[Rfam]
RNA sequence: CUCUUAUCAAGAGUAGGUGGAGGGAACACCCCCAAUGAAGCCCAGCAACCACUUUCCAUUGAAAGAAUGGUGCUAAAGGAUGCAGAGUGUUAAAACUCUCUGAGCGAUAAGAG
Numbered sequence: 001c002u003c004u005u006a007u008c009a010a011g012a013g014u015a016g017g018u019g020g021a022g023g024g025a026a027c028a029c030c031c032c033c034a035a036u037g038a039a040g041c042c043c044a045g046c047a048a049c050c051a052c053u054u055u056c057c058a059u060u061g062a063a064a065g066a067a068u069g070g071u072g073c074u075a076a077a078g079g080a081u082g083c084a085g086a087g088u089g090u091u092a093a094a095a096c097u098c099u100c101u102g103a104g105c106g107a108u109a110a111g112a113g
Stems, first nucleotide, its partner, number of pairs: 001113008013043001016042003022033003027082002030079001044074004049070002052065003078105001083102005